[Rfam]
RNA sequence: UUGCCUCAGUGAACAUUCAACGCUGUCGGUGAGUUUGAGCUAAAUGGAAAAAAACCAUCGACCGUUGAUUGUACCCUGCGGC
Numbered sequence: 001u002u003g004c005c006u007c008a009g010u011g012a013a014c015a016u017u018c019a020a021c022g023c024u025g026u027c028g029g030u031g032a033g034u035u036u037g038a039g040c041u042a043a044a045u046g047g048a049a050a051a052a053a054a055c056c057a058u059c060g061a062c063c064g065u066u067g068a069u070u071g072u073a074c075c076c077u078g079c080g081g082c
Stems, first nucleotide, its partner, number of pairs: 003082003007078002014071002017068006025062007033055004